[Rfam]
Nucleotides: 160
Base pairs, nucleotide, nucleotide: 012144013143014142018037019036020035021034022033023032024031025030038140039139040138041137042136043135048079080125081124082123088101089100090099091098105118106117107116
Number, partner (000 for none) and nucleotide at each position: 001000c002000u003000g004000u005000u006000g007000u008000u009000g010000c011000a012144g013143c014142c015000g016000a017000g018037u019036c020035c021034c022033c023032g024031g025030u026000u027000g028000a029000c030025g031024c032023c033022g034021g035020g036019g037018a038140g039139c040138g041137g042136g043135g044000a045000a046000c047000c048079c049000a050000c051000c052000g053000c054000c055000g056000c057000c058000u059000u060000g061000c062000u063000a064000u065000c066000a067000a068000g069000c070000g071000u072000c073000g074000c075000g076000g077000c078000c079048g080125g081124g082123g083000c084000g085000a086000a087000g088101g089100a090099g091098u092000c093000g094000g095000u096000c097000g098091g099090c100089u101088c102000c103000a104000a105118g106117c107116c108000a109000c110000u111000u112000u113000c114000a115000a116107g117106g118105c119000c120000c121000a122000g123082c124081c125080c126000g127000u128000c129000a130000g131000c132000u133000a134000a135043c136042c137041c138040c139039g140038c141000a142014g143013g144012c145000a146000c147000g148000u149000g150000a151000a152000a153000g154000a155000g156000c157000a158000c159000g160000a